[Rfam]
RNA sequence: UUCUGCUUCAAUUCCGUAGUGCAUUGCAGUCUUUCAUUUGUAUCUGCAUGCAGUGCGGAAGUGAGGUGGAAGA
Numbered sequence: 001u002u003c004u005g006c007u008u009c010a011a012u013u014c015c016g017u018a019g020u021g022c023a024u025u026g027c028a029g030u031c032u033u034u035c036a037u038u039u040g041u042a043u044c045u046g047c048a049u050g051c052a053g054u055g056c057g058g059a060a061g062u063g064a065g066g067u068g069g070a071a072g073a
Stems, first nucleotide, its partner, number of pairs: 006066005013059005020052003025048004
The record is a 73-nucleotide sequence from Thrips palmi, which matches "mir-932 microRNA precursor family" in Rfam. A reference for the family is Yu et al. (2008), "The silkworm (Bombyx mori) microRNAs and their expressions in multiple developmental stages", PLoS One. Lineage of the source: Eukaryota > Arthropoda > Dicondylia > Eumetabola > Thrips. Rfam links the family to the GO terms RISC complex and miRNA-mediated post-transcriptional gene silencing.